[Rfam]
Nucleotides: 134
Stems, first nucleotide, its partner, number of pairs: 001059001003057002007050002010047001012045006019037005070126001072124006081116002085111002088108001090106004
Number, partner (000 for none) and nucleotide at each position: 001059g002000c003057c004056c005000u006000g007050u008049g009000g010047u011000u012045g013044c014043u015042g016041g017040a018000c019037a020036c021035u022034g023033c024000a025000g026000u027000g028000c029000c030000c031000a032000u033023g034022c035021a036020g037019u038000g039000c040017u041016u042015c043014a044013g045012u046000u047010g048000g049008u050007g051000a052000a053000a054000g055000g056004g057003g058000c059001c060000c061000a062000c063000a064000g065000u066000g067000a068000c069000u070126c071000u072124g073123u074122g075121a076120u077119u078000u079000a080000c081116g082115c083000a084000g085111g086110g087000g088108g089000u090106c091105u092104g093103u094000g095000a096000u097000c098000u099000g100000u101000g102000a103093g104092c105091a106090g107000c108088c109000c110086c111085c112000a113000c114000a115082g116081c117000c118000c119077g120076g121075u122074c123073a124072c125000a126070g127000g128000c129000a130000c131000a132000g133000c134000c